[Rfam]
The record is a 58-nucleotide RNA, which matches "pemK RNA" in Rfam.
The family's consensus secondary structure is taken from published work.
It is one of the family's seed sequences.
RNA sequence: AUAAUGAUACUUCUCUACGGAGCUGGCGGAGAACCCGGCAGGGGUGAGAUUCCCAUGG
Numbered sequence: 001a002u003a004a005u006g007a008u009a010c011u012u013c014u015c016u017a018c019g020g021a022g023c024u025g026g027c028g029g030a031g032a033a034c035c036c037g038g039c040a041g042g043g044g045u046g047a048g049a050u051u052c053c054c055a056u057g058g
Stems, first nucleotide, its partner, number of pairs: 012055001013022003023041003027037003042054003